Rfam assigns this 130-nucleotide sequence from Octodon degus to the family "Small nucleolar RNA SNORA43". Taxonomically the source falls in Octodon (Eukaryota, Bilateria, Craniata, Euteleostomi). Rfam's curators write: ACA43 is a member of the H/ACA class of snoRNA that guide the sites of modification of uridines to pseudouridines. The base pairs follow the family's consensus structure, which was predicted with RNAfold.
[Rfam]
RNA sequence: CUGGCCUCCAGCACCAUGAGCACAGACACUCCUCGGUUCCUGUGAUUUGGGGGCAAAGAGCAACUGGCUAUUUCUAUGCUCAUUGUUUGGAGACCAGUGAGCACUAAGAAUGGUUUAUAGCCUGACACUG
Numbered sequence: 001c002u003g004g005c006c007u008c009c010a011g012c013a014c015c016a017u018g019a020g021c022a023c024a025g026a027c028a029c030u031c032c033u034c035g036g037u038u039c040c041u042g043u044g045a046u047u048u049g050g051g052g053g054c055a056a057a058g059a060g061c062a063a064c065u066g067g068c069u070a071u072u073u074c075u076a077u078g079c080u081c082a083u084u085g086u087u088u089g090g091a092g093a094c095c096a097g098u099g100a101g102c103a104c105u106a107a108g109a110a111u112g113g114u115u116u117a118u119a120g121c122c123u124g125a126c127a128c129u130g
Stems, first nucleotide, its partner, number of pairs: 001050003016043003066122003074113003079108002084103006